[Rfam]
RNA: Fluoride riboswitch aptamer (crcB RNA motif)
Organism: Vibrio eleionomae
RNA sequence: AUGACGCAAGGUGAUGGCGUACCACCUUACCCCAACCGCUGUAAUAAGAACGUGAAUAUCAACACUGUGUUUAUUAACGUUUAUACAGCUGAUGACGCCUGAUUUGAC
Numbered sequence: 001a002u003g004a005c006g007c008a009a010g011g012u013g014a015u016g017g018c019g020u021a022c023c024a025c026c027u028u029a030c031c032c033c034a035a036c037c038g039c040u041g042u043a044a045u046a047a048g049a050a051c052g053u054g055a056a057u058a059u060c061a062a063c064a065c066u067g068u069g070u071u072u073a074u075u076a077a078c079g080u081u082u083a084u085a086c087a088g089c090u091g092a093u094g095a096c097g098c099c100u101g102a103u104u105u106g107a108c
Base pairs, nucleotide, nucleotide: 010026011025012024013023016099017098018097019096020095038089039088040087041086042085043084